[Rfam]
RNA sequence: UUUUUCCUGCCACGUCGAAGCCCUACGUUCCUACGCGGGGUACUUAGUAGGCGGGGCGGGGAUUA
Numbered sequence: 001u002u003u004u005u006c007c008u009g010c011c012a013c014g015u016c017g018a019a020g021c022c023c024u025a026c027g028u029u030c031c032u033a034c035g036c037g038g039g040g041u042a043c044u045u046a047g048u049a050g051g052c053g054g055g056g057c058g059g060g061g062a063u064u065a
Stems, first nucleotide, its partner, number of pairs: 001065001004062008013053004020041005026035003

The record is a 65-nucleotide sequence, which matches "DUF3800-VIII RNA" in Rfam. The sequence is in the family's curated seed alignment. Rfam's curators write: Bacteroidetes, Cyanobacteria, Firmicutes, Planctomycetes (1 example), Proteobacteria, Tenericutes (1 example).